[Rfam]
RNA sequence: CUUAAGAGUUUUUCUUCGUCAACGCAGCUAUGUGACUGUGGAAUCAUAGCUGCUUGGCGAGGAAUUGCCCUUCCA
Number, nucleotide and partner (000 for none) at each position: 001c000002u000003u000004a000005a071006g070007a000008g068009u067010u000011u000012u064013u063014c062015u061016u060017c059018g000019u057020c056021a055022a054023c000024g000025c052026a051027g050028c049029u048030a000031u046032g044033u043034g000035a000036c000037u000038g000039u000040g000041g000042a000043a033044u032045c000046a031047u000048a029049g028050c027051u026052g025053c000054u022055u021056g020057g019058c000059g017060a016061g015062g014063a013064a012065u000066u000067g009068c008069c000070c006071u005072u000073c000074c000075a000
RNA: mir-4900 microRNA precursor family
Organism: Branchiostoma floridae